[Rfam]
RNA: c-di-GMP-I riboswitch aptamer
RNA sequence: AGUAGACAAAGGCAAACUUGGUGAAAACCAAGGACGCAAAAUCACGGGUCUAAGGUGCUGUAGCACUAUGAUGGCUGGACUGCCGUA
Numbered sequence: 001a002g003u004a005g006a007c008a009a010a011g012g013c014a015a016a017c018u019u020g021g022u023g024a025a026a027a028c029c030a031a032g033g034a035c036g037c038a039a040a041a042u043c044a045c046g047g048g049u050c051u052a053a054g055g056u057g058c059u060g061u062a063g064c065a066c067u068a069u070g071a072u073g074g075c076u077g078g079a080c081u082g083c084c085g086u087a
Stems, first nucleotide, its partner, number of pairs: 012037002017032006040081001042079002045077003048072003055066004